[Rfam]
RNA: Caenorhabditis snoRNA ceN67
Organism: Caenorhabditis japonica
RNA sequence: AAUCCCGUUAUCUUUCCAACAGCUGACUCCUACGUCAUUGUUGGCUUAAUAUGGGUGAAAUUGACUGGAUGAUUCUGAAAUAGGGUUAUGUUGCUGAAAAUUGACAAACCGCUUCACUCGUUCUACAUUU
Dot-bracket structure: ...(((((.......(((((((.((((......)))))))))))......)))))...........((.((....(((.....((((...(((........)))..))))...)))..)).)).......
Numbered sequence: 001a002a003u004c005c006c007g008u009u010a011u012c013u014u015u016c017c018a019a020c021a022g023c024u025g026a027c028u029c030c031u032a033c034g035u036c037a038u039u040g041u042u043g044g045c046u047u048a049a050u051a052u053g054g055g056u057g058a059a060a061u062u063g064a065c066u067g068g069a070u071g072a073u074u075c076u077g078a079a080a081u082a083g084g085g086u087u088a089u090g091u092u093g094c095u096g097a098a099a100a101u102u103g104a105c106a107a108a109c110c111g112c113u114u115c116a117c118u119c120g121u122u123c124u125a126c127a128u129u130u
Stems, first nucleotide, its partner, number of pairs: 004055005016044007024037004067123002070120002076116003084110004091104003